About this RNA: Shown here is a 110-nucleotide RNA sequence from Cellvibrio sp. PSBB023, a member of the family "TPP riboswitch aptamer (THI element)". A search with the family's covariance model found it, with a score of 64 bits. Rfam links the family to the GO term thiamine pyrophosphate binding. Pairs were carried over by alignment from the consensus structure, which is taken from published work.

RNA sequence: GUUUUCUUGUCGGGGUGCUGUUUAGGGGCGACUAGCCUGUAUUCAUGCUGAGAUAUACCCGCCGACCUGAUCCGGUUAGUACCGGCGUAGGGAACGAGAGCCUCCAGUUU
Numbered sequence: 001g002u003u004u005u006c007u008u009g010u011c012g013g014g015g016u017g018c019u020g021u022u023u024a025g026g027g028g029c030g031a032c033u034a035g036c037c038u039g040u041a042u043u044c045a046u047g048c049u050g051a052g053a054u055a056u057a058c059c060c061g062c063c064g065a066c067c068u069g070a071u072c073c074g075g076u077u078a079g080u081a082c083c084g085g086c087g088u089a090g091g092g093a094a095c096g097a098g099a100g101c102c103u104c105c106a107g108u109u110u
Stems, first nucleotide, its partner, number of pairs: 006098005011061004016055001017048002066091004072085004